[Rfam]
RNA sequence: UUAUCCGCGAGGAUUGGUUUGAAGGAAGCCGCUAGCAAAUUUGCGAGCUGAUGAACAAGAACAUCAUAUGAGGCGUAGGCUAGAGGUGAGUUGGCACAAGACGACGAAACCACGUGAUCUAAUGGCCACCGUAAAUGAUGCAGCAGUGCAAAGAAAGUUCAUGUU
Number, nucleotide and partner (000 for none) at each position: 001u016002u000003a014004u013005c012006c011007g000008c000009g000010a000011g006012g005013a004014u003015u000016g001017g000018u000019u000020u000021g000022a000023a000024g000025g000026a000027a000028g165029c000030c163031g162032c000033u000034a000035g158036c157037a000038a000039a000040u152041u151042u150043g149044c148045g147046a000047g144048c143049u142050g141051a000052u000053g000054a000055a000056c000057a000058a000059g000060a000061a000062c140063a139064u138065c137066a136067u135068a000069u000070g000071a000072g000073g132074c131075g130076u128077a000078g127079g126080c125081u124082a123083g000084a000085g111086g110087u109088g000089a000090g105091u104092u103093g102094g000095c000096a000097c000098a000099a000100g000101a000102c093103g092104a091105c090106g000107a000108a000109a087110c086111c085112a000113c000114g000115u000116g000117a000118u000119c000120u000121a000122a000123u082124g081125g080126c079127c078128a076129c000130c075131g074132u073133a000134a000135a067136u066137g065138a064139u063140g062141c050142a049143g048144c047145a000146g000147u045148g044149c043150a042151a041152a040153g000154a000155a000156a000157g036158u035159u000160c000161a000162u031163g030164u000165u028

The record is a 165-nucleotide RNA, which matches "Group II catalytic intron D1-D4-3" in Rfam. It is one of the family's seed sequences. The pairing is the family consensus, mapped onto this sequence. From the family's description: Group II introns are found in rRNA, tRNA and mRNA of organelles in fungi, plants and protists, and also in mRNA in bacteria. On this family, see Bonen and Vogel, Trends Genet 2001: "The ins and outs of group II introns".